Overview: A member of the RNA family "Eukaryotic large subunit ribosomal RNA" from Paramecium octaurelia, 270 nucleotides of a longer RNA. The organism belongs to Paramecium, within Eukaryota.
[Rfam]
RNA sequence: CGGUAGAAGAGAAAUGAUUUCAUUUAGAAGUAUGUAGUUAUGUAGGUGUCUUCUGCGGUGAUGGUACUUCAUAGGGCCUAGCUGUAGACCGGCGUCGCAUUGCUGCUUUUUCUGGGUGAAGUGCAAAAUGAGGUCUCGCUUGCGGAAACGUCUCUAGGGAGGACUCUGGCCUUGACGCUGGAAGCCCUGGUCUCCAACGCAAGCCUGGCCUGAGGGCUGCAUCUGCAGAUUUUGCAAAAAAGGCUUCUACUGACCCGUCUUGAAACACGG
Numbered sequence: 001c002g003g004u005a006g007a008a009g010a011g012a013a014a015u016g017a018u019u020u021c022a023u024u025u026a027g028a029a030g031u032a033u034g035u036a037g038u039u040a041u042g043u044a045g046g047u048g049u050c051u052u053c054u055g056c057g058g059u060g061a062u063g064g065u066a067c068u069u070c071a072u073a074g075g076g077c078c079u080a081g082c083u084g085u086a087g088a089c090c091g092g093c094g095u096c097g098c099a100u101u102g103c104u105g106c107u108u109u110u111u112c113u114g115g116g117u118g119a120a121g122u123g124c125a126a127a128a129u130g131a132g133g134u135c136u137c138g139c140u141u142g143c144g145g146a147a148a149c150g151u152c153u154c155u156a157g158g159g160a161g162g163a164c165u166c167u168g169g170c171c172u173u174g175a176c177g178c179u180g181g182a183a184g185c186c187c188u189g190g191u192c193u194c195c196a197a198c199g200c201a202a203g204c205c206u207g208g209c210c211u212g213a214g215g216g217c218u219g220c221a222u223c224u225g226c227a228g229a230u231u232u233u234g235c236a237a238a239a240a241a242g243g244c245u246u247c248u249a250c251u252g253a254c255c256c257g258u259c260u261u262g263a264a265a266c267a268c269g270g
Base pairs, nucleotide, nucleotide: 001252002251003250004249005248006247007246008245009244020119021118022117023116024115025114026113027112028111029110030109124234125233126232127231128230129229255270256269257268258267